Shown here is a 133-nucleotide RNA from Anabarilius grahami, a member of the family "U8 small nucleolar RNA". The family's RNA type in Rfam is C/D-box small nucleolar RNA. On this family, see Peculis, Mol Cell Biol 1997: "The sequence of the 5' end of the U8 small nucleolar RNA is critical for 5.8S and 28S rRNA maturation". The match comes from Rfam's covariance-model search (87 bits). Taxonomically the source falls in Anabarilius (Eukaryota, Opisthokonta, Metazoa, Craniata).
RNA sequence: ACAUCAGUGAGGUUUAUUCUUACCUGUUAUCUUAGAAAUAAGAUUACAGAACAUGAUGAUUGGAUUUUAUGAAUAUGUGAUUAUAUUCCAUAUUUGUUUAGGGCUUGCAACCCCCUUAUGAAUCCUGUCUGAU
Dot-bracket structure: .......................(((.((((((......))))).)))).........................(..(....)...)......((..(.(((...........))).)..))...........